RNA sequence: GGGUCAGCUUUGGCUCAAGUAGUUACGUCCUUGUGCCAGACUCUCCGUCUGUCUAACCCCUGUGCUGGGCUUCAAGACCUGCAGGUGCUUUCUGACUUUUUA
Number, nucleotide and partner (000 for none) at each position: 001g000002g097003g096004u095005c094006a093007g092008c000009u000010u000011u000012g000013g086014c085015u084016c000017a000018a000019g082020u081021a080022g079023u000024u000025a000026c000027g078028u077029c076030c000031u074032u000033g000034u000035g000036c000037c000038a000039g000040a000041c000042u000043c000044u000045c000046c000047g000048u000049c000050u000051g000052u000053c000054u000055a000056a000057c000058c000059c000060c000061u000062g000063u000064g000065c000066u000067g000068g000069g000070c000071u000072u000073c000074a031075a000076g029077a028078c027079c022080u021081g020082c019083a000084g015085g014086u013087g000088c000089u000090u000091u000092c007093u006094g005095a004096c003097u002098u000099u000100u000101u000102a000

Notes: The record is a 102-nucleotide sequence from Cebus imitator, which matches "Vault RNA" in Rfam. The base pairs follow the family's consensus structure, which is taken from published work. It is annotated as a non-coding RNA gene.